The record is a 102-nucleotide RNA from Spirosoma rhododendri, which matches "Bacteroidales small SRP" in Rfam. The match comes from Rfam's covariance-model search (80 bits). The family's RNA type in Rfam is non-coding RNA gene. The family's consensus secondary structure is taken from published work. Rfam links the family to the GO terms signal recognition particle, plasma membrane targeting and SRP-dependent cotranslational protein targeting to membrane, signal sequence recognition. The organism belongs to Spirosoma, within Bacteria.

[Rfam]
Nucleotides: 102
Base pairs, nucleotide, nucleotide: 008098009097010096011095012094013093014092015091017088018087019086020084021083022081023080
Number, partner (000 for none) and nucleotide at each position: 001000u002000u003000g004000c005000a006000u007000c008098g009097g010096c011095a012094a013093a014092u015091c016000g017088g018087u019086g020084c021083u022081a023080c024000c025000a026000g027000c028000u029000c030000c031000u032000g033000c034000u035000g036000a037000a038000u039000c040000c041000c042000c043000c044000a045000g046000g047000u048000c049000u050000u051000g052000a053000c054000c055000g056000a057000a058000g059000c060000a061000a062000g063000g064000g065000u066000a067000g068000g069000u070000g071000g072000u073000c074000g075000u076000a077000g078000c079000g080023g081022u082000g083021a084020g085000a086019c087018a088017u089000u090000c091015g092014a093013u094012u095011u096010g097009c098008c099000a100000u101000u102000u